Description: Shown here is a 61-nucleotide RNA from Molossus molossus, a member of the family "U7 small nuclear RNA". Rfam describes the family as follows. Animal histone pre-mRNAs are spliced by a different mechanism than nuclear pre-mRNAs and self-splicing introns. A search with the family's covariance model found it, with a score of 63 bits. The organism belongs to Molossus, within Eukaryota.

[Rfam]
RNA sequence: AAGUGCUUACAGCUUUUUGAAUUUGUCUAGUAGGUCUUCCGGUUUUCAUCGGAAGGCCCUU
Numbered sequence: 001a002a003g004u005g006c007u008u009a010c011a012g013c014u015u016u017u018u019g020a021a022u023u024u025g026u027c028u029a030g031u032a033g034g035u036c037u038u039c040c041g042g043u044u045u046u047c048a049u050c051g052g053a054a055g056g057c058c059c060u061u
Stems, first nucleotide, its partner, number of pairs: 033058011